[Rfam]
Description:
A member of the RNA family "ZMP/ZTP riboswitch aptamer (pfl RNA motif)" from Anaerovibrio lipolyticus, 83 nucleotides long. The source organism's lineage runs through Bacteria, Bacillati, Selenomonadales, Selenomonadaceae and Anaerovibrio.
RNA sequence: UAGGUUUUUCGGUGCUGACGGAUCAGUGGAGUUCACCACAUGUACCGGGAAAUGUCAAUAAGCCGACCGUCUGGGCAAGGAUU
Numbered sequence: 001u002a003g004g005u006u007u008u009u010c011g012g013u014g015c016u017g018a019c020g021g022a023u024c025a026g027u028g029g030a031g032u033u034c035a036c037c038a039c040a041u042g043u044a045c046c047g048g049g050a051a052a053u054g055u056c057a058a059u060a061a062g063c064c065g066a067c068c069g070u071c072u073g074g075g076c077a078a079g080g081a082u083u
Base pairs, nucleotide, nucleotide: 004053005052006051007050008049009048010047011046012045015042017071018070019069020068021067026039027038028037029036062076063075064074